[Rfam]
RNA sequence: UUCUUCUCUUCUUCACCAGACCUGUGGCUCGCUGUCCUAUCCCCUUGGGAUGGUUGAUAGCUUGUCAGUUCGUCCGAUUAAGGAGCCAUCAAACCCCCAUGAUGUCAAUCUUCCGGUCGACAGGUUCUCAGAGUAAUUAGGGAUGCUUCUUUCUGCCUGAGUUCGUUCGCAAGAACUUGAGCUCGGUGGUGGAGGCUGACCAGUGCGACUGAUUCCUGAUCUCUUUGCUGAGGCCGUCGGCUUCUGAAGCUAGGGACAAACCCAGUCUUUUGCAAACAUAC
Dot-bracket structure: .................(((((((((((..(.((((((((((....).)))))..)))).)..))).......(.(.(...((.(.(.............).).))........).).))))))).))............(...((.......((((.((((((((((....))))..))))))))))......)))......((((((((........(((((..(((..((((...)))).....))).)))))......)))))....))).......
Record summary:
This 281-nucleotide RNA sequence from Delitschia confertaspora belongs to the Rfam family "A. fumigatus sRNA Afu_309". Lineage of the source: Eukaryota > Opisthokonta > dothideomyceta > Pleosporomycetidae > Delitschia confertaspora. The literature on the family includes a 2008 paper in Nucleic Acids Res by Jochl et al., "Small ncRNA transcriptome analysis from Aspergillus fumigatus suggests a novel mechanism for regulation of protein synthesis".